[Rfam]
RNA sequence: UUCCAUGGCUCCUGCAUUGUACACACUGUGUGUAAGUCUUGCAAAUGCACAGCGCAUACAAUGUGGAUGCUGUGUUA
Numbered sequence: 001u002u003c004c005a006u007g008g009c010u011c012c013u014g015c016a017u018u019g020u021a022c023a024c025a026c027u028g029u030g031u032g033u034a035a036g037u038c039u040u041g042c043a044a045a046u047g048c049a050c051a052g053c054g055c056a057u058a059c060a061a062u063g064u065g066g067a068u069g070c071u072g073u074g075u076u077a
Stems, first nucleotide, its partner, number of pairs: 012066002015063007024054001026052006
Dot-bracket structure: ...........((.(((((((..(.((((((...............)))))).)..))))))).))...........